[Rfam]
Annotation: This 88-nucleotide RNA sequence from Aspergillus versicolor belongs to the Rfam family "tRNA". It is annotated as a transfer RNA. Rfam links the family to the GO term triplet codon-amino acid adaptor activity. The organism belongs to Aspergillus versicolor, within Eukaryota. From the family's description: Transfer RNA (tRNA) molecules are approximately 80 nucleotides in length. Their secondary structure includes four short double-helical elements and three loops (D, anti-codon, and T loops). Further hydrogen bonds mediate the characteristic L-shaped molecular structure. tRNAs have two regions of fundamental functional importance: the anti-codon, which is responsible for specific mRNA codon recognition, and the 3' end, to which the tRNAs corresponding amino acid is attached (by aminoacyl-tRNA synthetases). tRNAs cope with the degeneracy of the genetic code in two manners: having more than one tRNA (with a specific anti-codon) for a particular amino acid; and 'wobble' base-pairing, i.e. permitting non-standard base-pairing at the 3rd anti-codon position.

Nucleotides: 088
Stems, first nucleotide, its partner, number of pairs: 001087007010025003027059005064080005
Number, partner (000 for none) and nucleotide at each position: 001087g002086g003085u004084c005083u006082u007081g008000u009000g010025g011024u012023c013000u014000a015000a016000u017000g018000g019000u020000u021000a022000u023012g024011a025010c026000a027059u028058c029057a030056g031055a032000c033000u034000c035000u036000g037000a038000u039000a040000c041000u042000u043000a044000u045000u046000a047000g048000a049000g050000u051000c052000a053000c054000a055031u056030c057029u058028g059027g060000u061000a062000a063000u064080c065079c066078c067077g068076g069000u070000u071000c072000g073000a074000u075000c076068c077067c078066g079065g080064g081007c082006a083005g084004g085003a086002c087001c088000u